[Rfam]
RNA sequence: AAUUAAACCCGAUGGGAGCGGAUAUCCUUUUUGUGGCAUGGGCCCCAGAAACCUCGUAGGUUUUCAAAACCUACGAGGUUUAGCAUUGGCGAUGGCAAAAAGAUUGAAGCGUACAGCGGGACUUUCC
Numbered sequence: 001a002a003u004u005a006a007a008c009c010c011g012a013u014g015g016g017a018g019c020g021g022a023u024a025u026c027c028u029u030u031u032u033g034u035g036g037c038a039u040g041g042g043c044c045c046c047a048g049a050a051a052c053c054u055c056g057u058a059g060g061u062u063u064u065c066a067a068a069a070c071c072u073a074c075g076a077g078g079u080u081u082a083g084c085a086u087u088g089g090c091g092a093u094g095g096c097a098a099a100a101a102g103a104u105u106g107a108a109g110c111g112u113a114c115a116g117c118g119g120g121a122c123u124u125u126c127c
Stems, first nucleotide, its partner, number of pairs: 009119003013115002018110002024104003029100005